[Rfam]
RNA sequence: GCCCCGGUAGCUCAGGGGAUAGAGCACUUCUCUCCUAAAGAAGGUGUCGUGCGUUCGAAUCGCAUCCGGGGCA
Numbered sequence: 001g002c003c004c005c006g007g008u009a010g011c012u013c014a015g016g017g018g019a020u021a022g023a024g025c026a027c028u029u030c031u032c033u034c035c036u037a038a039a040g041a042a043g044g045u046g047u048c049g050u051g052c053g054u055u056c057g058a059a060u061c062g063c064a065u066c067c068g069g070g071g072c073a
Stems, first nucleotide, its partner, number of pairs: 001072007010025004027043005049065005

A member of the RNA family "tRNA" from Bifidobacterium coryneforme, 73 nucleotides long. It scores 63 bits against the family's covariance model. By type it is a transfer RNA. The organism belongs to Bifidobacterium coryneforme, within Bacteria.